RNA sequence: CAAAAUUUUGUAGUGAUACAUCAUUGGUUUGACAGAAGUCAGCAGACGCCAUAGUACUUUUUAAUUUUUUUAGGAAGGAAGGGC
Number, nucleotide and partner (000 for none) at each position: 001c026002a025003a000004a000005a024006u023007u000008u000009u020010g019011u018012a017013g000014u000015g000016a000017u012018a011019c010020a009021u000022c000023a006024u005025u002026g001027g000028u000029u000030u000031g000032a000033c000034a000035g000036a000037a000038g047039u046040c045041a000042g000043c000044a000045g040046a039047c038048g084049c083050c082051a000052u000053a000054g000055u000056a000057c077058u076059u075060u074061u073062u072063a000064a000065u000066u000067u000068u000069u000070u000071u000072a062073g061074g060075a059076a058077g057078g000079a000080a000081g000082g050083g049084c048
Description: This 84-nucleotide sequence belongs to the Rfam family "Group II catalytic intron D1-D4-1". Gene Ontology term of the family: Group II intron splicing. On this family, see Bonen and Vogel, Trends Genet 2001: "The ins and outs of group II introns". The sequence is in the family's curated seed alignment.